[Rfam]
RNA sequence: GAAAAGGGUUUCGAUCAGAGCAAUUACUUCGCUAAUCGCUCGACAAGAUCCAUAAUCUGAGGAUCCUUCACCAGAAGGAAUUAAUUAAACUCAGGUUGUGCAGAAUCGUGAUCAGUCAAAAGAUUCUGGGAACUUAAUUUUUGGUUAUUUUGGAGGAGGAAGAAGAGUUUAAGCUCUUUUUCGCCUCCACC
Numbered sequence: 001g002a003a004a005a006g007g008g009u010u011u012c013g014a015u016c017a018g019a020g021c022a023a024u025u026a027c028u029u030c031g032c033u034a035a036u037c038g039c040u041c042g043a044c045a046a047g048a049u050c051c052a053u054a055a056u057c058u059g060a061g062g063a064u065c066c067u068u069c070a071c072c073a074g075a076a077g078g079a080a081u082u083a084a085u086u087a088a089a090c091u092c093a094g095g096u097u098g099u100g101c102a103g104a105a106u107c108g109u110g111a112u113c114a115g116u117c118a119a120a121a122g123a124u125u126c127u128g129g130g131a132a133c134u135u136a137a138u139u140u141u142u143g144g145u146u147a148u149u150u151u152g153g154a155g156g157a158g159g160a161a162g163a164a165g166a167g168u169u170u171a172a173g174c175u176c177u178u179u180u181u182c183g184c185c186u187c188c189a190c191c
Base pairs, nucleotide, nucleotide: 008133009132010131011130012129013050014049015048016047051100052099053098054097055096056095057094058093059092060091061090101128102127103126104125105124106123107122152191153190155188156187157186158185159184162182163181164180165179166178167177